[Rfam]
RNA sequence: GCUGUGAUUUAGGUAGUUUCAUGUUGUUGGGGCUCCACCUUUCUCUCUACAACAAAAAACUGCCUGAAUUACUUC
Numbered sequence: 001g002c003u004g005u006g007a008u009u010u011a012g013g014u015a016g017u018u019u020c021a022u023g024u025u026g027u028u029g030g031g032g033c034u035c036c037a038c039c040u041u042u043c044u045c046u047c048u049a050c051a052a053c054a055a056a057a058a059a060c061u062g063c064c065u066g067a068a069u070u071a072c073u074u075c
Base pairs, nucleotide, nucleotide: 004072005071006070007069008068009067010066011065012064013063014062015061016060017059018058019057022054023053024052025051026050027049029047030046031045
Shown here is a 75-nucleotide sequence from Microcaecilia unicolor, a member of the family "mir-196 microRNA precursor family". Gene Ontology terms of the family: gene silencing by miRNA and RISC complex. NCBI's taxonomy places the organism under Eukaryota, Bilateria, Vertebrata, Teleostomi, Microcaecilia.